[Rfam]
RNA: Mammalian CPEB3 ribozyme
Organism: Crocodylus porosus
RNA sequence: UGAGGCUGUAGCAGAAGCAUUCAUGGCUCUAUCAGAUUCCAAAGAAUCUGCAAAUUCUGCU
Number, nucleotide and partner (000 for none) at each position: 001u000002g029003a028004g027005g000006c000007u000008g000009u000010a061011g060012c059013a058014g057015a056016a055017g000018c026019a000020u000021u000022c000023a000024u000025g000026g018027c004028u003029c002030u000031a000032u000033c050034a049035g048036a047037u046038u045039c044040c000041a000042a000043a000044g039045a038046a037047u036048c035049u034050g033051c000052a000053a000054a000055u016056u015057c014058u013059g012060c011061u010